[Rfam]
The record is an 89-nucleotide RNA sequence from Planosporangium flavigriseum, which matches "ZMP/ZTP riboswitch aptamer (pfl RNA motif)" in Rfam. A search with the family's covariance model found it, with a score of 58 bits.
RNA sequence: AGGCGUACUCGUGACUGGCGCAUCACAGAGGUGGAACCGACCACCGGGGAGCGAGCUCGAUCGCGGCACCGCGCGCCUGGGUGUCCGAU
Numbered sequence: 001a002g003g004c005g006u007a008c009u010c011g012u013g014a015c016u017g018g019c020g021c022a023u024c025a026c027a028g029a030g031g032u033g034g035a036a037c038c039g040a041c042c043a044c045c046g047g048g049g050a051g052c053g054a055g056c057u058c059g060a061u062c063g064c065g066g067c068a069c070c071g072c073g074c075g076c077c078u079g080g081g082u083g084u085c086c087g088a089u
Stems, first nucleotide, its partner, number of pairs: 004059002008055005015048002017077005031044004066084005
The family's consensus secondary structure is taken from published work.